[Rfam]
RNA sequence: AAAAAACCACGCGGGAGCACACACCAAGUGCGCUGAGAGGACGGAUCGGGGCCGUCGACCGUAUGAACCUGACCGGGUAAUGCCGGCGUAGGGAGAUGAAUAAUGACUGAAA
Numbered sequence: 001a002a003a004a005a006a007c008c009a010c011g012c013g014g015g016a017g018c019a020c021a022c023a024c025c026a027a028g029u030g031c032g033c034u035g036a037g038a039g040g041a042c043g044g045a046u047c048g049g050g051g052c053c054g055u056c057g058a059c060c061g062u063a064u065g066a067a068c069c070u071g072a073c074c075g076g077g078u079a080a081u082g083c084c085g086g087c088g089u090a091g092g093g094a095g096a097u098g099a100a101u102a103a104u105g106a107c108u109g110a111a112a
Stems, first nucleotide, its partner, number of pairs: 008098002011062004017033002020030002040056005068092004073086004